[Rfam]
This 123-nucleotide sequence belongs to the Rfam family "Hepatitis C virus J7880 RNA". Rfam's curators put it in the seed alignment. The literature on the family includes a 2015 paper in Proc Natl Acad Sci U S A by Mauger et al., "Functionally conserved architecture of hepatitis C virus RNA genomes".
RNA sequence: AUCAAGGCAAAGGCAUCCACGGUGAAGGCGAGACUACUGACUGUAGAGGAGGCCUGCAAACUAACGCCCCCACAUUCGGCCAGAUCCAAAUUUGGCUAUGGGGCGAAGGAUGUCCGGAGCCUA
Number, nucleotide and partner (000 for none) at each position: 001a000002u000003c000004a000005a000006g120007g000008c000009a000010a000011a000012g114013g113014c112015a111016u110017c109018c108019a000020c000021g000022g065023u064024g000025a062026a000027g000028g057029c056030g000031a000032g053033a000034c000035u050036a000037c048038u047039g000040a000041c000042u000043g000044u000045a000046g000047a038048g037049g000050a035051g000052g000053c032054c000055u000056g029057c028058a000059a000060a000061c000062u025063a000064a023065c022066g000067c000068c103069c102070c101071c100072a000073c000074a097075u000076u095077c094078g092079g091080c000081c000082a000083g000084a000085u000086c000087c000088a000089a000090a000091u079092u078093u000094g077095g076096c000097u074098a000099u000100g071101g070102g069103g068104c000105g000106a000107a000108g018109g017110a016111u015112g014113u013114c012115c000116g000117g000118a000119g000120c006121c000122u000123a000